[Rfam]
The record is a 164-nucleotide sequence from Streptomyces sp. yr375, which matches "c-di-AMP riboswitch aptamer (ydaO/yuaA leader)" in Rfam. The match comes from Rfam's covariance-model search (62 bits). Rfam links the family to the GO terms cyclic-di-AMP binding and regulation of gene expression. NCBI's taxonomy places the organism under Bacteria, Bacillati, Actinomycetes, Kitasatosporales, Streptomyces.

RNA sequence: GGUGUCCGCUCACCCACCCGUGUAAGGCAGGAGCGGGGGACCCACAGGUAGAACCGCCUGUUCCGGUCCCGGAACAGGCUUGGGGUAAAGCCGUGCCUCGGCGCGGCCGGGCAUCUCCAGCCCGCACCCGACAGCUCACCUCGCAGGCGUCGGAGAGGAAUUGG
Numbered sequence: 001g002g003u004g005u006c007c008g009c010u011c012a013c014c015c016a017c018c019c020g021u022g023u024a025a026g027g028c029a030g031g032a033g034c035g036g037g038g039g040a041c042c043c044a045c046a047g048g049u050a051g052a053a054c055c056g057c058c059u060g061u062u063c064c065g066g067u068c069c070c071g072g073a074a075c076a077g078g079c080u081u082g083g084g085g086u087a088a089a090g091c092c093g094u095g096c097c098u099c100g101g102c103g104c105g106g107c108c109g110g111g112c113a114u115c116u117c118c119a120g121c122c123c124g125c126a127c128c129c130g131a132c133a134g135c136u137c138a139c140c141u142c143g144c145a146g147g148c149g150u151c152g153g154a155g156a157g158g159a160a161u162u163g164g
Base pairs, nucleotide, nucleotide: 007149008148009147010146015031033144034143035142036141037140038139043082044081083129084128085127091106092105093104094103109123110122111121112120
Pairs were carried over by alignment from the consensus structure.